[Rfam]
RNA sequence: CCCCCAUUUUAAGUCAAGGACCUAUUCUUUUCCUCGUGAAAUACUAUUCAUGAAUUGGUUCUGUUACAAACUGGGAAGAUUGAGAACGACUCGCUUUCCCAAUGCCGUCUUGGCUGCGGGUUGACGGCUUCCGUUUUGGUCGCUGUCGCUAGAGUUCAGAGUGAUCUGUUUGAGUUGAAGGCCGAUUCCGCCUGGCGGGACCUUGUGUCGGUCUUCUUAGUAACGCUUCACACAUGC
Numbered sequence: 001c002c003c004c005c006a007u008u009u010u011a012a013g014u015c016a017a018g019g020a021c022c023u024a025u026u027c028u029u030u031u032c033c034u035c036g037u038g039a040a041a042u043a044c045u046a047u048u049c050a051u052g053a054a055u056u057g058g059u060u061c062u063g064u065u066a067c068a069a070a071c072u073g074g075g076a077a078g079a080u081u082g083a084g085a086a087c088g089a090c091u092c093g094c095u096u097u098c099c100c101a102a103u104g105c106c107g108u109c110u111u112g113g114c115u116g117c118g119g120g121u122u123g124a125c126g127g128c129u130u131c132c133g134u135u136u137u138g139g140u141c142g143c144u145g146u147c148g149c150u151a152g153a154g155u156u157c158a159g160a161g162u163g164a165u166c167u168g169u170u171u172g173a174g175u176u177g178a179a180g181g182c183c184g185a186u187u188c189c190g191c192c193u194g195g196c197g198g199g200a201c202c203u204u205g206u207g208u209c210g211g212u213c214u215u216c217u218u219a220g221u222a223a224c225g226c227u228u229c230a231c232a233c234a235u236g237c
Base pairs, nucleotide, nucleotide: 001075002074003073017062018061019060020059021058022057024055025054026053029041030040031039032038087159088156089155090154091153092152098120099119100118104114105113106112123147124146125145126144127143131139132138133137161231162230163229164228167225168224169223177216178215179214180213182211183210184209185208187199188198189197190196191195

About this RNA
Rfam assigns this 237-nucleotide RNA sequence from Didymella exigua to the family "Small nucleolar RNA snR191". Pairs were carried over by alignment from the consensus structure, which was predicted with WAR. It scores 58 bits against the family's covariance model. Lineage of the source: Eukaryota > leotiomyceta > Dothideomycetes > Pleosporomycetidae > Didymella exigua.